RNA sequence: CCGGCUCCGGUUCACGUCCGUACGGACGACCCGGCGGCC
Numbered sequence: 001c002c003g004g005c006u007c008c009g010g011u012u013c014a015c016g017u018c019c020g021u022a023c024g025g026a027c028g029a030c031c032c033g034g035c036g037g038c039c
Base pairs, nucleotide, nucleotide: 003039004038005037007034008033009032010031015028016027017026018025019024
RNA: L31-Actinobacteria ribosomal protein leader